[Rfam]
RNA: Peptidase-S11 RNA
RNA sequence: GCUAUGAUGCCUGAGCCAGCCCGUGUUCUCGCAAUGGCACGGGCGGUGUACGUUAUUACGUGCAUGAAUAAUUAUCAGAAAUCU
Numbered sequence: 001g002c003u004a005u006g007a008u009g010c011c012u013g014a015g016c017c018a019g020c021c022c023g024u025g026u027u028c029u030c031g032c033a034a035u036g037g038c039a040c041g042g043g044c045g046g047u048g049u050a051c052g053u054u055a056u057u058a059c060g061u062g063c064a065u066g067a068a069u070a071a072u073u074a075u076c077a078g079a080a081a082u083c084u
Stems, first nucleotide, its partner, number of pairs: 015047003019044009048063006